[Rfam]
RNA: Small nucleolar RNA Z102/R77
Organism: Lupinus albus
RNA sequence: GAAUGCAAUGAUGACCAUUUGUUUUCCCUAUUGGUUUGAUCGCAUGAAUGAUGGCAUUUUGUAUUAGCUCUAGUUGAGCAUUG
Numbered sequence: 001g002a003a004u005g006c007a008a009u010g011a012u013g014a015c016c017a018u019u020u021g022u023u024u025u026c027c028c029u030a031u032u033g034g035u036u037u038g039a040u041c042g043c044a045u046g047a048a049u050g051a052u053g054g055c056a057u058u059u060u061g062u063a064u065u066a067g068c069u070c071u072a073g074u075u076g077a078g079c080a081u082u083g
Stems, first nucleotide, its partner, number of pairs: 002082004038058001042055002